[Rfam]
RNA sequence: CCUAUGAACUGUUAUAUCAAACGAAAGUAGUCACCUUAACAGGGACAAAAUCGGACAGGUGGAAGUUGGAA
Numbered sequence: 001c002c003u004a005u006g007a008a009c010u011g012u013u014a015u016a017u018c019a020a021a022c023g024a025a026a027g028u029a030g031u032c033a034c035c036u037u038a039a040c041a042g043g044g045a046c047a048a049a050a051u052c053g054g055a056c057a058g059g060u061g062g063a064a065g066u067u068g069g070a071a
Stems, first nucleotide, its partner, number of pairs: 001069002004066002009058005022053003030046003034043002